[Rfam]
RNA sequence: AUCGAAUGAUGUCAAGGAUGUACUACAUGAUAAUGAUGAUGAUGAUGAUGUAGAACCCACCAUGAUUACUGAUGAU
Numbered sequence: 001a002u003c004g005a006a007u008g009a010u011g012u013c014a015a016g017g018a019u020g021u022a023c024u025a026c027a028u029g030a031u032a033a034u035g036a037u038g039a040u041g042a043u044g045a046u047g048a049u050g051u052a053g054a055a056c057c058c059a060c061c062a063u064g065a066u067u068a069c070u071g072a073u074g075a076u
Stems, first nucleotide, its partner, number of pairs: 001076004
Dot-bracket structure: ((((....................................................................))))
This 76-nucleotide sequence from Arachis duranensis belongs to the Rfam family "Small nucleolar RNA SNORD24".
The family's consensus secondary structure was predicted with PFOLD.
Rfam links the family to the GO terms RNA processing and nucleolus.
It scores 43 bits against the family's covariance model.
The organism belongs to Arachis, within Eukaryota.